[Rfam]
RNA: mir-31 microRNA precursor family
Organism: Oncorhynchus kisutch
RNA sequence: GAAAACCAUUUUGCAAUUAUGUUAGCACAGCUGAAAAAGUUUUCAGUUUUCAGUUUUCAGCUGUGCUAACAUAAUUGCAAAAGGGUUUUCU
Numbered sequence: 001g002a003a004a005a006c007c008a009u010u011u012u013g014c015a016a017u018u019a020u021g022u023u024a025g026c027a028c029a030g031c032u033g034a035a036a037a038a039g040u041u042u043u044c045a046g047u048u049u050u051c052a053g054u055u056u057u058c059a060g061c062u063g064u065g066c067u068a069a070c071a072u073a074a075u076u077g078c079a080a081a082a083g084g085g086u087u088u089u090c091u
Base pairs, nucleotide, nucleotide: 005086006085007084009082010081011080012079013078014077015076016075017074018073019072020071021070023068024067025066026065027064028063029062030061031060032059033058034057035056036055